RNA: mir-23 microRNA precursor family
Organism: Malurus cyaneus
RNA sequence: UGCCCGCCGGGGUUCCUGGCGAUGGGAUUUUUUACCGUUUAUGCCCAAAAUCACAUUGCCAGGGAUUUCCAACGGGCC
Numbered sequence: 001u002g003c004c005c006g007c008c009g010g011g012g013u014u015c016c017u018g019g020c021g022a023u024g025g026g027a028u029u030u031u032u033u034a035c036c037g038u039u040u041a042u043g044c045c046c047a048a049a050a051u052c053a054c055a056u057u058g059c060c061a062g063g064g065a066u067u068u069c070c071a072a073c074g075g076g077c078c
Stems, first nucleotide, its partner, number of pairs: 002077001004075003010070002012066013026052005